[Rfam]
T-box leader: a 208-nucleotide sequence from Eubacterium sp. CAG:161. NCBI's taxonomy places the organism under Bacteria, Clostridia, Eubacteriales, Eubacteriaceae, Eubacterium. A search with the family's covariance model found it, with a score of 112 bits. Uncharged tRNA acts as the effector for transcription antitermination of genes in the T-box leader family.
RNA sequence: UUAAAUGCGUUGAGGAAAAGGAGUAGCAGAUAACCCCUUAUAGAGAAAGAGGGAUGGUGGAAGCCUCUUAGGAAGGUAUUUGUGAAGGUAGUUUCUAAGCAGCCGUGGUAAAAAAUGGAUUAUCCAAUUAGCCGCAGACGUUUCAUCCCCGUUACAGGAUAAGAUAAGUGAUAAAGAAAGGUGGUACCGCGAUAUAUUCGCCCUUUGU
Numbered sequence: 001u002u003a004a005a006u007g008c009g010u011u012g013a014g015g016a017a018a019a020g021g022a023g024u025a026g027c028a029g030a031u032a033a034c035c036c037c038u039u040a041u042a043g044a045g046a047a048a049g050a051g052g053g054a055u056g057g058u059g060g061a062a063g064c065c066u067c068u069u070a071g072g073a074a075g076g077u078a079u080u081u082g083u084g085a086a087g088g089u090a091g092u093u094u095c096u097a098a099g100c101a102g103c104c105g106u107g108g109u110a111a112a113a114a115a116u117g118g119a120u121u122a123u124c125c126a127a128u129u130a131g132c133c134g135c136a137g138a139c140g141u142u143u144c145a146u147c148c149c150c151g152u153u154a155c156a157g158g159a160u161a162a163g164a165u166a167a168g169u170g171a172u173a174a175a176g177a178a179a180g181g182u183g184g185u186a187c188c189g190c191g192a193u194a195u196a197u198u199c200g201c202c203c204u205u206u207g208u
Base pairs, nucleotide, nucleotide: 007100008099015095016094017093018092026083027082028081029080030079031078036072037071038070047069048068049067050066051065052064103137105135106134107133108132109131139151140150178205179204180203181202189201190200191199192198